Shown here is a 71-nucleotide sequence from Orchesella cincta, a member of the family "mir-124 microRNA precursor family". The source organism's lineage runs through Eukaryota, Opisthokonta, Mandibulata, Altocrustacea and Orchesella. On this family, see Lai et al., Genome Biol 2003: "Computational identification of Drosophila microRNA genes". It scores 59 bits against the family's covariance model.
RNA sequence: CCCUUUCGGUUUUCACUGUAGGCCUGUAUGUAUCACUGAAAUCAUAAGGCACGCGGUGAAUGCCAAAAGCG
Number, nucleotide and partner (000 for none) at each position: 001c000002c000003c069004u068005u067006u066007c000008g000009g063010u062011u000012u060013u059014c058015a057016c056017u000018g054019u053020a000021g000022g000023c049024c048025u047026g000027u046028a045029u044030g043031u000032a000033u000034c000035a000036c000037u000038g000039a000040a000041a000042u000043c030044a029045u028046a027047a025048g024049g023050c000051a000052c000053g019054c018055g000056g016057u015058g014059a013060a012061u000062g010063c009064c000065a000066a006067a005068a004069g003070c000071g000